[Rfam]
RNA sequence: UCUGAAGUCCUGGCGUAGCUACAGAGAAGCCAGGGCCCUUCAGA
Numbered sequence: 001u002c003u004g005a006a007g008u009c010c011u012g013g014c015g016u017a018g019c020u021a022c023a024g025a026g027a028a029g030c031c032a033g034g035g036c037c038c039u040u041c042a043g044a
Stems, first nucleotide, its partner, number of pairs: 001044007009035001010033005

A member of the RNA family "MAT2A 3'UTR stem loop D" from Ophiophagus hannah, 44 nucleotides long. The source organism's lineage runs through Eukaryota, Bilateria, Vertebrata, Serpentes and Ophiophagus. A reference for the family is Parker et al. (2011), "New families of human regulatory RNA structures identified by comparative analysis of vertebrate genomes", Genome Res. The match comes from Rfam's covariance-model search (34 bits).